[Rfam]
RNA sequence: AUUUGAUAAGGGCAAACCCGUCGAAAGGCGGUGACGCAAAGCUACAGGGGCUAAAGUCUGAGGACAAUGCCAGCCAGCUGCCGGA
Numbered sequence: 001a002u003u004u005g006a007u008a009a010g011g012g013c014a015a016a017c018c019c020g021u022c023g024a025a026a027g028g029c030g031g032u033g034a035c036g037c038a039a040a041g042c043u044a045c046a047g048g049g050g051c052u053a054a055a056g057u058c059u060g061a062g063g064a065c066a067a068u069g070c071c072a073g074c075c076a077g078c079u080g081c082c083g084g085a
Stems, first nucleotide, its partner, number of pairs: 012037002018031005040079004047075002049071003056065003
A member of the RNA family "c-di-GMP-I riboswitch aptamer" from Bacillus salacetis, 85 nucleotides long. The match comes from Rfam's covariance-model search (77 bits). Gene Ontology term of the family: cyclic-di-GMP binding. The organism belongs to Bacillus, within Bacteria. The base pairs follow the family's consensus structure, which is taken from published work.